[Rfam]
Notes:
This 72-nucleotide RNA sequence from Nicotiana sylvestris belongs to the Rfam family "MIR6151 microRNA precursor family". Rfam 15.1 lists 930 matches to the family in 3 species. A search with the family's covariance model found it, with a score of 72 bits. Lineage of the source: Eukaryota > Viridiplantae > Streptophyta > Nicotianoideae > Nicotiana.
Nucleotides: 072
Base pairs, nucleotide, nucleotide: 004067006064007063009061010060011059013057014056015055016054017053018052020050021049022048024047025046026045028043029042030041031040032039
Number, partner (000 for none) and nucleotide at each position: 001000a002000u003000u004067c005000g006064c007063u008000a009061g010060a011059u012000g013057a014056g015055u016054g017053u018052g019000a020050g021049g022048c023000g024047u025046u026045g027000a028043a029042u030041u031040g032039a033000u034000u035000u036000a037000a038000c039032u040031c041030a042029a043028u044000c045026u046025g047024a048022g049021c050020c051000c052018c053017a054016c055015a056014u057013u058000a059011a060010u061009c062000a063007a064006g065000g066000g067004g068000u069000u070000c071000g072000u
The base pairs follow the family's consensus structure, which was predicted with RNAalifold.